[Rfam]
RNA sequence: CGAGUUGGCCGGGCGGCCGCGGCUCGUAUCCCGAGUCGAGGAAAGUCCGGACUUCACAGAGCAGGGUGAUUGCUAACGGCAAUCCGAGGUGACUCGCGGGAAAGUGCCACAGAAAACAGACCGCCACCCUCGCGGUGGUAAGGGUGAAACGGUGCGGUAAGAGCGCACCAGCACCCCGGGUGACCGGGGUGGCUCGGCAAACCCCACCCGAAGCAAGGCCAAGAAGGCCGUGCCGCCGGCACGGCCGCGCAGGCGUCCGAGGGUUGCUCGCCCGAGCCUGCGGGUAGGCCGCUCGAGGCACCCGGUGACGGUGUGUCCAGAUGGAUGGUCGCCGCCGCGGCGCCGGUUUUCCGGCGGCGCGGAACAGAAUCCGGCUUACAGGCCAACUCGUCCG
Dot-bracket structure: ((((((((((((((((((.(((((((.....)))))))....[[[.[[[[[((((...[[[[.((((((((((.....)))))(((((....)))).)((...(((((............((((((((.....))))))..)).......((((((.......)))))).(((((((((....)))))))).)..)))..)))))))))))))...((((..(.((((................................((((.]]]]))))..)))).).....))))......((((((((....))).))))).........)))))))....................................]]]]]]]].).))))))))))....
Background:
The record is a 394-nucleotide sequence from Mycobacterium avium, which matches "Bacterial RNase P class A" in Rfam. Rfam's curators put it in the seed alignment.